[Rfam]
RNA sequence: GCACGCGAGUGCUGCGAGGCCUCUGCCCGGGCGCGGACCCUGACGUACUUCCCCGACGCCAGGUGCCGCGCCUCGGUCAGAGACCUCGACGCAUUCGCCGGUUCCG
Numbered sequence: 001g002c003a004c005g006c007g008a009g010u011g012c013u014g015c016g017a018g019g020c021c022u023c024u025g026c027c028c029g030g031g032c033g034c035g036g037a038c039c040c041u042g043a044c045g046u047a048c049u050u051c052c053c054c055g056a057c058g059c060c061a062g063g064u065g066c067c068g069c070g071c072c073u074c075g076g077u078c079a080g081a082g083a084c085c086u087c088g089a090c091g092c093a094u095u096c097g098c099c100g101g102u103u104c105c106g
Stems, first nucleotide, its partner, number of pairs: 010093003015088002018085002021082005027076005032070005039063004044058003
RNA: mraW RNA
Organism: Nocardia asteroides